[Rfam]
RNA sequence: GGCUGAGUCACAGCAGUUCUUCAGUGGCAAGCUUUACGUCCUGUCCCAGCUAAAGCUGCCAGUUGAAGAACUGUUGAACUCAGC
Numbered sequence: 001g002g003c004u005g006a007g008u009c010a011c012a013g014c015a016g017u018u019c020u021u022c023a024g025u026g027g028c029a030a031g032c033u034u035u036a037c038g039u040c041c042u043g044u045c046c047c048a049g050c051u052a053a054a055g056c057u058g059c060c061a062g063u064u065g066a067a068g069a070a071c072u073g074u075u076g077a078a079c080u081c082a083g084c
Stems, first nucleotide, its partner, number of pairs: 005081003011076002017070006026060003030057007
mir-22 microRNA precursor family: an 84-nucleotide sequence from Ornithorhynchus anatinus. Rfam's curators put it in the seed alignment. The family's consensus secondary structure was predicted with RNAalifold. Its family is annotated with miRNA-mediated post-transcriptional gene silencing and RISC complex in the Gene Ontology.